[Rfam]
RNA sequence: CGCGUGAAACUCGAAGAGUCGCACGCGGGAGAUUCAGUAUUCGCGGCGCCGGGACGGAGGAGCGCUCAAACGAGGCGCAGACGCGGACGCGGGCUCGCUCUCGAGUCCGACGUCGGCCGAGCGUUUUCCCCUGCAAGUGUCUCGUCCCGCCGCGGGUCCGCACUUCUCCCCGCGUUAAAAGACCGUCGCGACCGGCCGGCCACAGACCGGGAUCGAGGGCGUUCGCGGACAGACUCCGGGAAAGGUUGCGGCGUUCGAUCGAUCGUCGCGCGUUUCGGCGCGCGGCGAUCGUCGAUCGCGCUCCACGCGCCUCUCCAUCGGAGACGCGAACGAGGCCCGAUCCCGGGCCGGCCGUAUGAAACGGAAUCAGACGAUCGCUCGCGUCGGUCGCCCGCGAGGGCGCCGAGCGCGUCCGUCGGCGGUUCCCGUCCGGGGAAUCCGCGCCUCGCUUCGUUCGCGCGGAGCGAGAGCGCGCGCGUUGUCCGGACGCGCGGCCGCCGUUCUCGGACCGAGAAUCCAGCGACGUCGGUCGAGCGGCGCAAAUGGUUUCGGGCAUUCACGCGACCCGUCUUGAAACACGG
Number, nucleotide and partner (000 for none) at each position: 001c563002g562003c561004g560005u559006g558007a557008a556009a000010c000011u553012c552013g000014a000015a000016g000017a000018g000019u000020c000021g000022c000023a000024c000025g000026c000027g000028g000029g000030a000031g000032a000033u000034u000035c000036a000037g000038u000039a000040u000041u000042c000043g000044c000045g000046g000047c000048g000049c000050c000051g000052g000053g000054a000055c000056g000057g000058a000059g000060g000061a000062g000063c000064g000065c000066u000067c000068a000069a000070a000071c000072g000073a000074g000075g000076c000077g000078c000079a000080g000081a000082c000083g000084c000085g000086g000087a000088c000089g000090c000091g000092g000093g000094c000095u000096c000097g000098c000099u000100c000101u000102c000103g000104a000105g000106u000107c000108c000109g000110a000111c000112g000113u000114c000115g000116g000117c000118c000119g000120a000121g000122c000123g000124u000125u000126u000127u000128c000129c000130c000131c000132u000133g000134c000135a000136a000137g000138u000139g000140u000141c000142u000143c000144g000145u000146c000147c000148c000149g000150c000151c000152g000153c000154g000155g000156g000157u000158c000159c000160g000161c000162a000163c000164u000165u000166c000167u000168c000169c000170c000171c000172g000173c000174g000175u000176u000177a000178a000179a000180a000181g000182a000183c000184c000185g000186u000187c000188g000189c000190g000191a000192c000193c000194g000195g000196c000197c000198g000199g000200c000201c000202a000203c000204a000205g000206a000207c000208c000209g000210g000211g000212a000213u000214c000215g000216a000217g000218g000219g000220c000221g000222u000223u000224c000225g000226c000227g000228g000229a000230c000231a000232g000233a000234c000235u000236c000237c000238g000239g000240g000241a000242a000243a000244g000245g000246u000247u000248g000249c000250g000251g000252c000253g000254u000255u000256c000257g000258a000259u000260c000261g000262a000263u000264c000265g000266u000267c000268g000269c000270g000271c000272g000273u000274u000275u000276c000277g000278g000279c000280g000281c000282g000283c000284g000285g000286c000287g000288a000289u000290c000291g000292u000293c000294g000295a000296u000297c000298g000299c000300g000301c000302u000303c000304c000305a000306c000307g000308c000309g000310c000311c000312u000313c000314u000315c000316c000317a000318u000319c000320g000321g000322a000323g000324a000325c000326g000327c000328g000329a000330a000331c000332g000333a000334g000335g000336c000337c000338c000339g000340a000341u000342c000343c000344c000345g000346g000347g000348c000349c000350g000351g000352c000353c000354g000355u000356a000357u000358g000359a000360a000361a000362c000363g000364g000365a000366a000367u000368c000369a000370g000371a000372c000373g000374a000375u000376c000377g000378c000379u000380c000381g000382c000383g000384u000385c000386g000387g000388u000389c000390g000391c000392c000393c000394g000395c000396g000397a000398g000399g000400g000401c000402g000403c000404c000405g000406a000407g000408c000409g000410c000411g000412u000413c000414c000415g000416u000417c000418g000419g000420c000421g000422g000423u000424u000425c000426c000427c000428g000429u000430c000431c000432g000433g000434g000435g000436a000437a000438u000439c000440c000441g000442c000443g000444c000445c000446u000447c000448g000449c000450u000451u000452c000453g000454u000455u000456c000457g000458c000459g000460c000461g000462g000463a000464g000465c000466g000467a000468g000469a000470g000471c000472g000473c000474g000475c000476g000477c000478g000479u000480u000481g000482u000483c000484c000485g000486g000487a000488c000489g000490c000491g000492c000493g000494g000495c000496c000497g000498c000499c000500g000501u000502u000503c000504u000505c000506g000507g000508a000509c000510c000511g000512a000513g000514a000515a000516u000517c000518c000519a000520g000521c000522g000523a000524c000525g000526u000527c000528g000529g000530u000531c000532g000533a000534g000535c000536g000537g000538c000539g000540c000541a000542a000543a000544u000545g000546g000547u000548u000549u000550c000551g000552g012553g011554c000555a000556u008557u007558c006559a005560c004561g003562c002563g001564a000565c000566c581567c580568g579569u578570c000571u000572u000573g000574a000575a000576a000577c000578a569579c568580g567581g566

Annotation:
A member of the RNA family "Eukaryotic large subunit ribosomal RNA" from Pediculus humanus, 581 nucleotides of a longer RNA. The match comes from Rfam's covariance-model search (2654 bits). The source organism's lineage runs through Eukaryota, Ecdysozoa, Panarthropoda, Dicondylia and Pediculus humanus.